[Rfam]
RNA sequence: GGGGGUGUACUGGUUUCGACGGGGGUUUUGAAGCUUGAGUAGCGAGUCGAUGUUGCUGAUCAUCGUAAAAAGUGGCACUUAAAUAUAAACGCAAAAACAGAAAAAAGUUACGGGUUAGCUUUAGCAGCGUAAUUACGCUCUAAAGUUUAAUACUAAGACUUCGCAGCAUAAUUAAUGCUGCACGCCUCCCAUCUCAACCUGUGGUUUUGGGUUUCGGCGUUCAUUGAAGCAGGGAACCGUUUUAGGUAGUGCCUCGCACCUUUAACGAUCAAGAGGCUGGUUCACUCUUUUCUUUGUCAUUGGAGAAGAGGGGGAAUGAGAAAAUAAGCAAUGACUGCACUCGGAGAAGCUCCUGUGAAUGGAUUUUCGGACAGGGGUUCGACUCCCCUCACCUCCACCA
Numbered sequence: 001g002g003g004g005g006u007g008u009a010c011u012g013g014u015u016u017c018g019a020c021g022g023g024g025g026u027u028u029u030g031a032a033g034c035u036u037g038a039g040u041a042g043c044g045a046g047u048c049g050a051u052g053u054u055g056c057u058g059a060u061c062a063u064c065g066u067a068a069a070a071a072g073u074g075g076c077a078c079u080u081a082a083a084u085a086u087a088a089a090c091g092c093a094a095a096a097a098c099a100g101a102a103a104a105a106a107g108u109u110a111c112g113g114g115u116u117a118g119c120u121u122u123a124g125c126a127g128c129g130u131a132a133u134u135a136c137g138c139u140c141u142a143a144a145g146u147u148u149a150a151u152a153c154u155a156a157g158a159c160u161u162c163g164c165a166g167c168a169u170a171a172u173u174a175a176u177g178c179u180g181c182a183c184g185c186c187u188c189c190c191a192u193c194u195c196a197a198c199c200u201g202u203g204g205u206u207u208u209g210g211g212u213u214u215c216g217g218c219g220u221u222c223a224u225u226g227a228a229g230c231a232g233g234g235a236a237c238c239g240u241u242u243u244a245g246g247u248a249g250u251g252c253c254u255c256g257c258a259c260c261u262u263u264a265a266c267g268a269u270c271a272a273g274a275g276g277c278u279g280g281u282u283c284a285c286u287c288u289u290u291u292c293u294u295u296g297u298c299a300u301u302g303g304a305g306a307a308g309a310g311g312g313g314g315a316a317u318g319a320g321a322a323a324a325u326a327a328g329c330a331a332u333g334a335c336u337g338c339a340c341u342c343g344g345a346g347a348a349g350c351u352c353c354u355g356u357g358a359a360u361g362g363a364u365u366u367u368c369g370g371a372c373a374g375g376g377g378u379u380c381g382a383c384u385c386c387c388c389u390c391a392c393c394u395c396c397a398c399c400a
Base pairs, nucleotide, nucleotide: 001396002395003394004393005392006391007390020369021368022367023366024365025364026363027362028361033356034355037352038351039350040349043343044342045341046340047339048065049064050063051062052061054077055076056075057074058073060071120144121143122142123141124140126139127138128137182220183219184218185217186216188211189210190209191208193204194203198234199233200232238267239266240265241264244261245260246259251277252276253275254274255273280317281316282315283314285312286311287310288309289308292305293304294303296335297334298333299332301328373389374388375387376386377385